[Rfam]
RNA sequence: CACAAUAAUGGCUUAUGGGCGGUUGGCUAGUCUCCUGUAAAGGAGGUGAUGCCAGUGAGUAUAUUUGAAGCGUUAAGUCUGAUGUUCCUUUUCGGGAUGUUCAUUCUUGCUUUGCUCACCUACUUAAAGAAAAAGUAGACCGCCCUCUCGCAAAGGAAUGCGGUCUACUUCAGUAGAUGUGCUCACUUCGAUAAAGCCACCCGCUCAUUCAGCGGUUAUUGUGGGAAGAAGGUCGCAGUUGCAGCUGCGAUC
Dot-bracket structure: ((((((.(((((((.((((.(.((...(.((((((......)))))).).......(.(..((......(((..........)))........((.(..........).)).))..).).................)).)..)))....).........(((.................)))...........)))))).((((.......))))).)))))).......(((((((((....)))))))))
The record is a 252-nucleotide RNA sequence from Paenibacillus sp. KS1, which matches "BsrG" in Rfam. Its family is annotated with autolysis and toxin activity in the Gene Ontology. From the family's description: bsrE, bsrG and bsrH pair through intermolecular interactions with antisense sRNAs. They form type I toxin/antitoxin system that includes an mRNA encoding for a short, toxic peptide (bsrE, bsrG and bsrH) and an antitoxin that is comprised of an antisense RNA. bsrG encodes a 39-amino-acid toxin, and the 180 nucleotide antisense sRNA called SR4 acts as the antitoxin (they overlap by 123 nucleotides).